[Rfam]
RNA sequence: GAAGCGCGCCAGACCGCCGCUGGUGCAAUCUGGGAAACCAGGCACUGGAGGAACGUCCGGACUGCACAGGACAGCGUAGCAGCUAACGGCUGCCCACCGCGAGGUGAGGAUCAGAGCAACAGAGACGAGUCGGGGGGCGGCAACGCGCCCCGGGUGAAACGGGCAAUCUCUACGCGCAGCAAUACCAAGUAGGCCAGCGUCGAUGUGGUUCCGCAGAGCUGGCGGGUAGGUAGCACCGAGCCGUGGUGGCGACACCCGGCCCAGAUCGAUGGCGGUCACGCUGCGGGUCACCGCAGCGCACAGAAUCCGGCUUAUCGGCGCGCUUCACAC
Numbered sequence: 001g002a003a004g005c006g007c008g009c010c011a012g013a014c015c016g017c018c019g020c021u022g023g024u025g026c027a028a029u030c031u032g033g034g035a036a037a038c039c040a041g042g043c044a045c046u047g048g049a050g051g052a053a054c055g056u057c058c059g060g061a062c063u064g065c066a067c068a069g070g071a072c073a074g075c076g077u078a079g080c081a082g083c084u085a086a087c088g089g090c091u092g093c094c095c096a097c098c099g100c101g102a103g104g105u106g107a108g109g110a111u112c113a114g115a116g117c118a119a120c121a122g123a124g125a126c127g128a129g130u131c132g133g134g135g136g137g138c139g140g141c142a143a144c145g146c147g148c149c150c151c152g153g154g155u156g157a158a159a160c161g162g163g164c165a166a167u168c169u170c171u172a173c174g175c176g177c178a179g180c181a182a183u184a185c186c187a188a189g190u191a192g193g194c195c196a197g198c199g200u201c202g203a204u205g206u207g208g209u210u211c212c213g214c215a216g217a218g219c220u221g222g223c224g225g226g227u228a229g230g231u232a233g234c235a236c237c238g239a240g241c242c243g244u245g246g247u248g249g250c251g252a253c254a255c256c257c258g259g260c261c262c263a264g265a266u267c268g269a270u271g272g273c274g275g276u277c278a279c280g281c282u283g284c285g286g287g288u289c290a291c292c293g294c295a296g297c298g299c300a301c302a303g304a305a306u307c308c309g310g311c312u313u314a315u316c317g318g319c320g321c322g323c324u325u326c327a328c329a330c
Base pairs, nucleotide, nucleotide: 001326002325003324004323005322006321007320008319009318010317011315012277013276014275015274016273017272018271020048021047022046023045024044025043026042053313055311057310058309059308060307061306062179063178064177065176069210070209074175075174076173077172078171079093080092081091082090083089094108095106096105097104098103109170110169114168115167116164117163134151135150136149137148138147139146152160183232184231185230186229193223194222195221196220197219198218204215205214206213207212240260241259242258243257245256246255247254248253